[Rfam]
RNA sequence: AAUCCCAUUUUAGUACCACUUUUUUGCUUCUCAGAAUAAGUGGCUAUGCUAAUGGGAAAGAAUAAUCUCUGCUAUAGUCUGAUGGGGAAUGAUAACUUUUUGUAACUUCUCCUACAUGAAAUGGCAGAACAGAAAAUU
Numbered sequence: 001a002a003u004c005c006c007a008u009u010u011u012a013g014u015a016c017c018a019c020u021u022u023u024u025u026g027c028u029u030c031u032c033a034g035a036a037u038a039a040g041u042g043g044c045u046a047u048g049c050u051a052a053u054g055g056g057a058a059a060g061a062a063u064a065a066u067c068u069c070u071g072c073u074a075u076a077g078u079c080u081g082a083u084g085g086g087g088a089a090u091g092a093u094a095a096c097u098u099u100u101u102g103u104a105a106c107u108u109c110u111c112c113u114a115c116a117u118g119a120a121a122u123g124g125c126a127g128a129a130c131a132g133a134a135a136a137u138u
Stems, first nucleotide, its partner, number of pairs: 004056004016043004071125004089113001091111002

A member of the RNA family "Small nucleolar RNA SNORA29" from Xenopus tropicalis, 138 nucleotides long. The family has 26 seed sequences and 960 matches in Rfam 15.1. Clan: SNORA20 clan. Lineage of the source: Eukaryota > Metazoa > Deuterostomia > Pipidae > Silurana. It scores 97 bits against the family's covariance model. Rfam links the family to the GO terms RNA processing and nucleolus. From the family's description: ACA29 is a member of the H/ACA class of snoRNA that guide the sites of modification of uridines to pseudouridines.